[Rfam]
RNA sequence: CAGGCGGCCCUGCGCUGCUGCCAGACCCCCGACCCGGCAGCCGCGUAGGGCCAUUUA
Numbered sequence: 001c002a003g004g005c006g007g008c009c010c011u012g013c014g015c016u017g018c019u020g021c022c023a024g025a026c027c028c029c030c031g032a033c034c035c036g037g038c039a040g041c042c043g044c045g046u047a048g049g050g051c052c053a054u055u056u057a
Base pairs, nucleotide, nucleotide: 002056003055004054007051008050009049010048011047012046013045014044015043017041018040019039020038021037022036

The family of this 57-nucleotide RNA from Antrihabitans cavernicola is "F6 TB sRNA". The literature on the family includes a 2009 paper in Mol Microbiol by Arnvig and Young, "Identification of small RNAs in Mycobacterium tuberculosis". The organism belongs to Antrihabitans, within Bacteria. The family's consensus secondary structure is taken from published work.